[Rfam]
RNA sequence: GGCAUUGAGUGUCAGCGACAAGCCCUGGCUUGCUGACCGGCAACCCUCCUUCGCGGUGGGGUGCUCCAGGUGAAAGCCCGGCCCGACCGGAACCCCGGCGGGCAAGCGCGAGAG
Dot-bracket structure: (((.....(.((((((....((......)).)))))))(((..(((.((.....))..))).)))..........)))..(((((.((((....)))))))))...........
SAM (S-adenosyl methionine) riboswitch aptamer: a 114-nucleotide sequence from Branchiibius sp. NY16-3462-2. Clan: SAM clan. The base pairs follow the family's consensus structure, which is taken from published work. A search with the family's covariance model found it, with a score of 99 bits. Rfam links the family to the GO terms S-adenosylmethionine metabolic process and regulation of gene expression.